[Rfam]
RNA sequence: GGGAUAUGAUGAGCGGUUGGCUCUCGCAAAGAAAUGCGAGAAGGGUGUCCGCCCCAAAGCCUGGUUACGACAAUUGGGCACUCUCAUUCUUACCAAUCUGAUCCC
Numbered sequence: 001g002g003g004a005u006a007u008g009a010u011g012a013g014c015g016g017u018u019g020g021c022u023c024u025c026g027c028a029a030a031g032a033a034a035u036g037c038g039a040g041a042a043g044g045g046u047g048u049c050c051g052c053c054c055c056a057a058a059g060c061c062u063g064g065u066u067a068c069g070a071c072a073a074u075u076g077g078g079c080a081c082u083c084u085c086a087u088u089c090u091u092a093c094c095a096a097u098c099u100g101a102u103c104c105c
Base pairs, nucleotide, nucleotide: 001105002104003103004102016094018092023040024039025038026037027036042084043083044082045081046080047079048078049077062076063075064074065073
RNA: Small nucleolar RNA Z279/snoR105/snoR108